The family of this 105-nucleotide RNA from Afipia carboxidovorans is "Repression of heat shock gene expression (ROSE) element". This family represents a 5' UTR cis-regulatory element found in heat shock mRNAs and is known as the ROSE (repression of heat shock gene expression) element. The ROSE element is a negative regulator of heat shock gene expression. The secondary structure is thought to be regulated by temperature. This regulation blocks access to the ribosome binding site under normal conditions. Pairs were carried over by alignment from the consensus structure, which is taken from published work. It scores 50 bits against the family's covariance model.
[Rfam]
RNA sequence: CCGGCCGCUCAUUUCGGGGUCGGAAAGCCGAGCCGAUGCAACAGCGUCCAACGGCAGAACAACUUGUAUCCAUGUUGCUUCACAAGGAGGAUGUGGCUAUGAGAA
Numbered sequence: 001c002c003g004g005c006c007g008c009u010c011a012u013u014u015c016g017g018g019g020u021c022g023g024a025a026a027g028c029c030g031a032g033c034c035g036a037u038g039c040a041a042c043a044g045c046g047u048c049c050a051a052c053g054g055c056a057g058a059a060c061a062a063c064u065u066g067u068a069u070c071c072a073u074g075u076u077g078c079u080u081c082a083c084a085a086g087g088a089g090g091a092u093g094u095g096g097c098u099a100u101g102a103g104a105a
Stems, first nucleotide, its partner, number of pairs: 001023006008017002063103006070096007078089003